The family of this 146-nucleotide RNA from Geosporobacter ferrireducens is "PyrR binding site". The family has 41 seed sequences and 1,498 matches in Rfam 15.1. Rfam links the family to the GO terms pyrimidine nucleobase transport and pyrimidine nucleobase biosynthetic process. The match comes from Rfam's covariance-model search (71 bits). A reference for the family is Bonner et al. (2001), "Molecular recognition of pyr mRNA by the Bacillus subtilis attenuation regulatory protein PyrR", Nucleic Acids Res. Lineage of the source: Bacteria > Bacillati > Clostridia > Thermotaleaceae > Geosporobacter. The family's RNA type in Rfam is cis-regulatory element.
RNA sequence: AGUACCUUUAAAUCAGUCCAGAGAGGCUGGCAAGGUGUACGGAUUAUAUGACUACAAUAGGAGCGCUAAUGAUAUCUAUGAUUGAAUACUCUAUUAUGUCAUAUAAAAAAGGCUUCUUGUCAGUUUAUUGACAAGAAGCCUUUUUU
Numbered sequence: 001a002g003u004a005c006c007u008u009u010a011a012a013u014c015a016g017u018c019c020a021g022a023g024a025g026g027c028u029g030g031c032a033a034g035g036u037g038u039a040c041g042g043a044u045u046a047u048a049u050g051a052c053u054a055c056a057a058u059a060g061g062a063g064c065g066c067u068a069a070u071g072a073u074a075u076c077u078a079u080g081a082u083u084g085a086a087u088a089c090u091c092u093a094u095u096a097u098g099u100c101a102u103a104u105a106a107a108a109a110a111g112g113c114u115u116c117u118u119g120u121c122a123g124u125u126u127a128u129u130g131a132c133a134a135g136a137a138g139c140c141u142u143u144u145u146u
Base pairs, nucleotide, nucleotide: 003037004036005035006034007033008032013030014029015028016027017026018025044106045105046104047103048102049101050100051099052098109142110141111140112139113138114137115136116135117134118133119132120131121130122129